GA-cis RNA: a 94-nucleotide RNA sequence.
Rfam classes the family as a small RNA.
Pairs were carried over by alignment from the consensus structure, which is taken from published work.
[Rfam]
RNA sequence: GGGAGGAAAAACGCAAAUGAUGCGAAGCGUCAUUUAUCGGAAUGCGUUUUUCCGAACAGCCGCCGAAGCCGAAGGCGAGGGGGCACUACAUUAU
Numbered sequence: 001g002g003g004a005g006g007a008a009a010a011a012c013g014c015a016a017a018u019g020a021u022g023c024g025a026a027g028c029g030u031c032a033u034u035u036a037u038c039g040g041a042a043u044g045c046g047u048u049u050u051u052c053c054g055a056a057c058a059g060c061c062g063c064c065g066a067a068g069c070c071g072a073a074g075g076c077g078a079g080g081g082g083g084c085a086c087u088a089c090a091u092u093a094u
Stems, first nucleotide, its partner, number of pairs: 008050006017033006059084003063080002068076002